RNA sequence: AGGUGGACUAGGCCGGGCAGUUAGGCCCUGCUCGAAACCCGCACUAUGGUCUUUAGCGGGGGCCGAAACCUGGGAGCGUCCGGACAGACCCGUCCGGGCCCCGGGAGCCGACGUGGAAACCUCGUCCAUCGGGGGCCACGGUCCGCGGCGAUCGCCCGCAGGGGCGUCCCGUCGCGGUUCGUCGGCGCCACCCCGUCAGGCGCGGAAGCGAGCAGCGGACCGCCGGACGAUGGUCGCUCGAUGGGUCGCGGGGCGGAGGAGGCAACCGGGUUUCCCCGGCCGGGAACGCCGGGCAACCCUUGGCGUCCGCCA
Numbered sequence: 001a002g003g004u005g006g007a008c009u010a011g012g013c014c015g016g017g018c019a020g021u022u023a024g025g026c027c028c029u030g031c032u033c034g035a036a037a038c039c040c041g042c043a044c045u046a047u048g049g050u051c052u053u054u055a056g057c058g059g060g061g062g063c064c065g066a067a068a069c070c071u072g073g074g075a076g077c078g079u080c081c082g083g084a085c086a087g088a089c090c091c092g093u094c095c096g097g098g099c100c101c102c103g104g105g106a107g108c109c110g111a112c113g114u115g116g117a118a119a120c121c122u123c124g125u126c127c128a129u130c131g132g133g134g135g136c137c138a139c140g141g142u143c144c145g146c147g148g149c150g151a152u153c154g155c156c157c158g159c160a161g162g163g164g165c166g167u168c169c170c171g172u173c174g175c176g177g178u179u180c181g182u183c184g185g186c187g188c189c190a191c192c193c194c195g196u197c198a199g200g201c202g203c204g205g206a207a208g209c210g211a212g213c214a215g216c217g218g219a220c221c222g223c224c225g226g227a228c229g230a231u232g233g234u235c236g237c238u239c240g241a242u243g244g245g246u247c248g249c250g251g252g253g254c255g256g257a258g259g260a261g262g263c264a265a266c267c268g269g270g271u272u273u274c275c276c277c278g279g280c281c282g283g284g285a286a287c288g289c290c291g292g293g294c295a296a297c298c299c300u301u302g303g304c305g306u307c308c309g310c311c312a
Stems, first nucleotide, its partner, number of pairs: 002311007011064004015033006038060005069303002072300003078294004082289001089284004094279005100270005107263003112258001114256001120253006126244008134235005139229002141179001143177008153166005182226006193218004201210003
Archaeal signal recognition particle RNA: a 312-nucleotide RNA sequence from Natronoarchaeum philippinense.
Lineage of the source: Archaea > Methanobacteriati > Methanobacteriota > Halobacteria > Natronoarchaeum.
Clan: SRP clan.
Rfam classes the family as a non-coding RNA gene.